[Rfam]
RNA sequence: AUACAUACAUGUACACACACAUGUCAUCCACACACAUACAUAUAUAUAUGUUUGUAUGGAUAUGUGUGUGUAUGUGUGUGUAU
Numbered sequence: 001a002u003a004c005a006u007a008c009a010u011g012u013a014c015a016c017a018c019a020c021a022u023g024u025c026a027u028c029c030a031c032a033c034a035c036a037u038a039c040a041u042a043u044a045u046a047u048a049u050g051u052u053u054g055u056a057u058g059g060a061u062a063u064g065u066g067u068g069u070g071u072a073u074g075u076g077u078g079u080g081u082a083u
Base pairs, nucleotide, nucleotide: 001083002082003081004080005079006078007077008076009075010074011073012072013071014070015069016068017067018066019065020064021063022062023061024060025059030055031054032053034051035050036049037048038047
The record is an 83-nucleotide sequence from Homo sapiens, which matches "mir-3149 microRNA precursor family" in Rfam. NCBI's taxonomy places the organism under Eukaryota, Craniata, Boreoeutheria, Primates, Homo. Gene Ontology terms of the family: RISC complex and miRNA-mediated post-transcriptional gene silencing.